[Rfam]
RNA sequence: GCUGGUGCAGGUGAUGAUCACCUUUCCCCGUCAGAGCGACAGUGUUGAUCCCUCACUGUUCAAGCCAGGUCGUGUCUGAUGCACCAGG
Numbered sequence: 001g002c003u004g005g006u007g008c009a010g011g012u013g014a015u016g017a018u019c020a021c022c023u024u025u026c027c028c029c030g031u032c033a034g035a036g037c038g039a040c041a042g043u044g045u046u047g048a049u050c051c052c053u054c055a056c057u058g059u060u061c062a063a064g065c066c067a068g069g070u071c072g073u074g075u076c077u078g079a080u081g082c083a084c085c086a087g088g
Stems, first nucleotide, its partner, number of pairs: 002087008
RNA: Small nucleolar SNORD12/SNORD106
Organism: Nipponia nippon